Rfam assigns this 75-nucleotide sequence from Danaus chrysippus to the family "mir-190 microRNA precursor family". A reference for the family is Kloosterman et al. (2006), "Cloning and expression of new microRNAs from zebrafish", Nucleic Acids Res.

[Rfam]
RNA sequence: GUGUCGGUGAGAUAUGUUUGAUAUUCUUGGUUGUUUUUGCAUCACCCGGGAAUCAAACAUAUUACACAUCGACCG
Numbered sequence: 001g002u003g004u005c006g007g008u009g010a011g012a013u014a015u016g017u018u019u020g021a022u023a024u025u026c027u028u029g030g031u032u033g034u035u036u037u038u039g040c041a042u043c044a045c046c047c048g049g050g051a052a053u054c055a056a057a058c059a060u061a062u063u064a065c066a067c068a069u070c071g072a073c074c075g
Stems, first nucleotide, its partner, number of pairs: 005071005011063012024050002029047002032044002
It scores 59 bits against the family's covariance model.